[Rfam]
RNA sequence: CCUGAGUCUAGAGGAAGCAUUUCUGCACACACCAGACUAUUGAAGUCAGUGUGUGGCAGUGCUUUUGCUACAUUCCUA
Numbered sequence: 001c002c003u004g005a006g007u008c009u010a011g012a013g014g015a016a017g018c019a020u021u022u023c024u025g026c027a028c029a030c031a032c033c034a035g036a037c038u039a040u041u042g043a044a045g046u047c048a049g050u051g052u053g054u055g056g057c058a059g060u061g062c063u064u065u066u067g068c069u070a071c072a073u074u075c076c077u078a
Stems, first nucleotide, its partner, number of pairs: 004075004009070003013066004018061004023056007032049001
A member of the RNA family "mir-147 microRNA precursor family" from Crocuta crocuta, 78 nucleotides long. Lineage of the source: Eukaryota > Metazoa > Vertebrata > Euteleostomi > Crocuta. It scores 62 bits against the family's covariance model. Its family is annotated with miRNA-mediated post-transcriptional gene silencing and RISC complex in the Gene Ontology.